Background:
Shown here is a 249-nucleotide RNA sequence from Streptomyces sp. ICC1, a member of the family "Streptomyces sRNA 4677". Rfam describes the family as follows. Located in the intergenic region between anti-sigma factor SCO4677 gene and a putative regulatory protein gene SCO4676. scr4677 expression requires the SCO4677 activity and scr4677 sRNA itself seem to affect the levels of the SCO4676-associated transcripts. It scores 120 bits against the family's covariance model. The literature on the family includes a 2014 paper in PLoS One by Hindra et al., "Complex intra-operonic dynamics mediated by a small RNA in Streptomyces coelicolor". By type it is a small RNA. Pairs were carried over by alignment from the consensus structure.

[Rfam]
RNA sequence: CGUCCCGGUGGGGCCCGAUGCUUCUUUUGGUUCAAGUACUGGGAGAAAGAACUCAUCCCAAACCCCACCAGGCCUCCCGCUGCGCGGGCUCUCACUCACACGGGUGAAUCGGCCAACUGAGGUGGAUUUCGCGGUGGUUGUCUGGCAUAUGCUCGCCCCGACAACUCAGACAUCAGACAUGAGACGGCCCCCGACGGGACUGCGAAUCCCGAUCGAGGGCCUGACCACACAGGAAGCACAACCUUCCCC
Numbered sequence: 001c002g003u004c005c006c007g008g009u010g011g012g013g014c015c016c017g018a019u020g021c022u023u024c025u026u027u028u029g030g031u032u033c034a035a036g037u038a039c040u041g042g043g044a045g046a047a048a049g050a051a052c053u054c055a056u057c058c059c060a061a062a063c064c065c066c067a068c069c070a071g072g073c074c075u076c077c078c079g080c081u082g083c084g085c086g087g088g089c090u091c092u093c094a095c096u097c098a099c100a101c102g103g104g105u106g107a108a109u110c111g112g113c114c115a116a117c118u119g120a121g122g123u124g125g126a127u128u129u130c131g132c133g134g135u136g137g138u139u140g141u142c143u144g145g146c147a148u149a150u151g152c153u154c155g156c157c158c159c160g161a162c163a164a165c166u167c168a169g170a171c172a173u174c175a176g177a178c179a180u181g182a183g184a185c186g187g188c189c190c191c192c193g194a195c196g197g198g199a200c201u202g203c204g205a206a207u208c209c210c211g212a213u214c215g216a217g218g219g220c221c222u223g224a225c226c227a228c229a230c231a232g233g234a235a236g237c238a239c240a241a242c243c244u245u246c247c248c249c
Base pairs, nucleotide, nucleotide: 008228009227010226016079017078092107093106094105095104096103097102121157122156123155124154125153186221187220188219189218190217192215193214194213196210197209198208199207232247233246234245235244236243
Dot-bracket structure: .......(((.....((............................................................))............((((((....)))))).............(((((...........................)))))............................(((((.(((.((((.......))))..))).)))))....)))...(((((......)))))..